[Rfam]
RNA sequence: ACCGCCACGGACGGCGGUGGUUCCACGCAGAAAUGAGUUUUAAAACUACCUCUUUUUUAUGAUAGGAGUUUUUAAACUCAUAGGUUAGUUUUUGACAUGGACGUCAAAAACUAACCGUUG
Numbered sequence: 001a002c003c004g005c006c007a008c009g010g011a012c013g014g015c016g017g018u019g020g021u022u023c024c025a026c027g028c029a030g031a032a033a034u035g036a037g038u039u040u041u042a043a044a045a046c047u048a049c050c051u052c053u054u055u056u057u058u059a060u061g062a063u064a065g066g067a068g069u070u071u072u073u074a075a076a077c078u079c080a081u082a083g084g085u086u087a088g089u090u091u092u093u094g095a096c097a098u099g100g101a102c103g104u105c106a107a108a109a110a111c112u113a114a115c116c117g118u119u120g
Base pairs, nucleotide, nucleotide: 001018002017003016004015005014006013034080035079036078037077038076039075040074042072043071044070045069046068047067083116084115085114086113087112088111089110090109091108092107093106094105095104096103
Shown here is a 120-nucleotide sequence from Treponema phagedenis, a member of the family "TD-2 RNA". The match comes from Rfam's covariance-model search (61 bits). Clan: TD (Treponema denticola) motifs.